[Rfam]
RNA sequence: UGACGGAAGGGCACCACCAGUUGUGGACUGGGCGGCUCAAUUUGACUCAACACGGGAAAACUUACCAGGUCCAGACAUAGUCAGGAUUGACAGAUUGAAGUUCUUUCAUGAUUCUAUGAAUAGUGGUGCAUGGCCGUUCUUAGUUGGUGGAGUGAUUUGUCUGGUUAAUUCCGAUAACGAACGAGACCUCAGCCGUCUAACUAGCUGUCGCUAGCGAUGUACUGCUAGCGCUUGUUCGCAAGAUCAGCUUCUUAGAGGGACAAUCUGUGCUCAGCAGAUGGAAGCUUGAGGCUAUAACAGGUCAGUGAUGCCCUUAGAAGGUCUGGGCUGCACGCGCGCUACAAUGACCCAGUCAGCGGGCCGACCCGAGCCUGAGAAGGCGAGGUAAUCCCCAAACUGGGUCCAAGUUGGGAUAGAUGAUUGCAAUUAUUCAUCUUGAACAAGGAAUAUCUAGUAAACGCAAGUCAUCAACUUGCAUUGAUUACGUCCCUGCCCUUUGUACACA
Numbered sequence: 001u002g003a004c005g006g007a008a009g010g011g012c013a014c015c016a017c018c019a020g021u022u023g024u025g026g027a028c029u030g031g032g033c034g035g036c037u038c039a040a041u042u043u044g045a046c047u048c049a050a051c052a053c054g055g056g057a058a059a060a061c062u063u064a065c066c067a068g069g070u071c072c073a074g075a076c077a078u079a080g081u082c083a084g085g086a087u088u089g090a091c092a093g094a095u096u097g098a099a100g101u102u103c104u105u106u107c108a109u110g111a112u113u114c115u116a117u118g119a120a121u122a123g124u125g126g127u128g129c130a131u132g133g134c135c136g137u138u139c140u141u142a143g144u145u146g147g148u149g150g151a152g153u154g155a156u157u158u159g160u161c162u163g164g165u166u167a168a169u170u171c172c173g174a175u176a177a178c179g180a181a182c183g184a185g186a187c188c189u190c191a192g193c194c195g196u197c198u199a200a201c202u203a204g205c206u207g208u209c210g211c212u213a214g215c216g217a218u219g220u221a222c223u224g225c226u227a228g229c230g231c232u233u234g235u236u237c238g239c240a241a242g243a244u245c246a247g248c249u250u251c252u253u254a255g256a257g258g259g260a261c262a263a264u265c266u267g268u269g270c271u272c273a274g275c276a277g278a279u280g281g282a283a284g285c286u287u288g289a290g291g292c293u294a295u296a297a298c299a300g301g302u303c304a305g306u307g308a309u310g311c312c313c314u315u316a317g318a319a320g321g322u323c324u325g326g327g328c329u330g331c332a333c334g335c336g337c338g339c340u341a342c343a344a345u346g347a348c349c350c351a352g353u354c355a356g357c358g359g360g361c362c363g364a365c366c367c368g369a370g371c372c373u374g375a376g377a378a379g380g381c382g383a384g385g386u387a388a389u390c391c392c393c394a395a396a397c398u399g400g401g402u403c404c405a406a407g408u409u410g411g412g413a414u415a416g417a418u419g420a421u422u423g424c425a426a427u428u429a430u431u432c433a434u435c436u437u438g439a440a441c442a443a444g445g446a447a448u449a450u451c452u453a454g455u456a457a458a459c460g461c462a463a464g465u466c467a468u469c470a471a472c473u474u475g476c477a478u479u480g481a482u483u484a485c486g487u488c489c490c491u492g493c494c495c496u497u498u499g500u501a502c503a504c505a
Stems, first nucleotide, its partner, number of pairs: 001503002003500003007497007016487002020451001022449003025342001027340001029338002032335003035331002041056004065326007076118005089107002092104003122314002125312004131308001132306001133302003136298003143182003147178002149158003162173003188290004193258002197255004203249004261281001263279006346403007358392003366385002370381004410441001415436006457479002460476005
A member of the RNA family "Eukaryotic small subunit ribosomal RNA" from Haplosporidium costale, 505 nucleotides of a longer RNA. Its family is annotated with structural constituent of ribosome and ribosome in the Gene Ontology. Rfam's curators put it in the seed alignment. The family's consensus secondary structure is taken from published work. The source organism's lineage runs through Eukaryota, Sar, Endomyxa, Ascetosporea and Haplosporidium. The family is grouped with related families in Rfam's "SSU clan".